Source information:
This 101-nucleotide sequence from Cytobacillus depressus belongs to the Rfam family "Purine riboswitch aptamer". Its family is annotated with purine nucleobase biosynthetic process in the Gene Ontology. The organism belongs to Cytobacillus, within Bacteria.
RNA sequence: AUUAAAUAUGUCGUAUUACGUCGUAUAAUCCCGGAAAUAUGGUCCGGAAGUUUCUACCGAGCUGCCGAAAUAGCUUGACUACGAGGUAGGCGUAAUUUAUU
Numbered sequence: 001a002u003u004a005a006a007u008a009u010g011u012c013g014u015a016u017u018a019c020g021u022c023g024u025a026u027a028a029u030c031c032c033g034g035a036a037a038u039a040u041g042g043u044c045c046g047g048a049a050g051u052u053u054c055u056a057c058c059g060a061g062c063u064g065c066c067g068a069a070a071u072a073g074c075u076u077g078a079c080u081a082c083g084a085g086g087u088a089g090g091c092g093u094a095a096u097u098u099a100u101u
Stems, first nucleotide, its partner, number of pairs: 018087002021084005029049001031047005058077007